[Rfam]
RNA sequence: CUCAUGAAAUGAGAAUCUCCAUUGAAAAGUGGUUUUUCCAUCUCCAAGAACAACGUAGGAAAAUUGAAUUGAAAUUGGCCGAGAGAUCAUUUUAUUUUUCUCUAGAUGGGCAGAUUGAUUAUUGCUUGUCUACAU
Numbered sequence: 001c002u003c004a005u006g007a008a009a010u011g012a013g014a015a016u017c018u019c020c021a022u023u024g025a026a027a028a029g030u031g032g033u034u035u036u037u038c039c040a041u042c043u044c045c046a047a048g049a050a051c052a053a054c055g056u057a058g059g060a061a062a063a064u065u066g067a068a069u070u071g072a073a074a075u076u077g078g079c080c081g082a083g084a085g086a087u088c089a090u091u092u093u094a095u096u097u098u099u100c101u102c103u104a105g106a107u108g109g110g111c112a113g114a115u116u117g118a119u120u121a122u123u124g125c126u127u128g129u130c131u132a133c134a135u
Stems, first nucleotide, its partner, number of pairs: 006044002009041003013036003017032002077131002080128004086119004095114001096108001098106002